[Rfam]
RNA sequence: AAAACUAAAUAUCUCCGAGCCUAACUUCCUAAAGAGUUUAUUACUUUAUGGAAAUUAGGCCUAUAGGGUGUACUUGGAAACAAUUACGCCUCCCAUUGUGGAAAGGAGUUCUAUGAUAGCAGUU
Numbered sequence: 001a002a003a004a005c006u007a008a009a010u011a012u013c014u015c016c017g018a019g020c021c022u023a024a025c026u027u028c029c030u031a032a033a034g035a036g037u038u039u040a041u042u043a044c045u046u047u048a049u050g051g052a053a054a055u056u057a058g059g060c061c062u063a064u065a066g067g068g069u070g071u072a073c074u075u076g077g078a079a080a081c082a083a084u085u086a087c088g089c090c091u092c093c094c095a096u097u098g099u100g101g102a103a104a105g106g107a108g109u110u111c112u113a114u115g116a117u118a119g120c121a122g123u124u
Stems, first nucleotide, its partner, number of pairs: 004117001006115001011110001013108004019060006026053004033047004066091007074083003092101002

This 124-nucleotide RNA sequence from Anaerovirgula multivorans belongs to the Rfam family "Molybdenum/Tungsten riboswitch aptamer (Moco RNA motif)". It scores 82 bits against the family's covariance model. Lineage of the source: Bacteria > Bacillota > Peptostreptococcales > Natronincolaceae > Anaerovirgula. For this family Rfam cites "in molybdenum cofactor and tungsten cofactor metabolism" (Regulski et al., Mol Microbiol, 2008).